[Rfam]
Background: This 132-nucleotide RNA sequence from Pelusios castaneus belongs to the Rfam family "Small nucleolar RNA SNORA38". It scores 65 bits against the family's covariance model. The organism belongs to Pelusios, within Eukaryota.
Nucleotides: 132
Base pairs, nucleotide, nucleotide: 002056003055004054005053006052015043016042017041018040019039020038021037023029066125067124068123070122088110089109090108091107092105093104094103095102096101
Number, partner (000 for none) and nucleotide at each position: 001000c002056c003055c004054u005053c006052c007000c008000a009000c010000a011000a012000a013000g014000g015043c016042g017041u018040g019039c020038c021037u022000g023029g024000a025000u026000c027000c028000c029023c030000u031000g032000u033000g034000u035000u036000c037021a038020g039019g040018c041017a042016c043015g044000u045000a046000a047000g048000a049000a050000c051000u052006g053005g054004a055003g056002g057000c058000a059000g060000a061000u062000u063000a064000a065000c066125g067124g068123g069000a070122a071000u072000g073000a074000a075000g076000a077000g078000u079000u080000a081000u082000g083000g084000u085000u086000g087000g088110g089109g090108c091107u092105g093104c094103u095102g096101g097000a098000a099000u100000u101096u102095c103094a104093g105092c106000u107091g108090g109089c110088c111000a112000c113000a114000c115000a116000u117000c118000u119000c120000u121000u122070u123068u124067c125066c126000g127000a128000c129000a130000c131000u132000c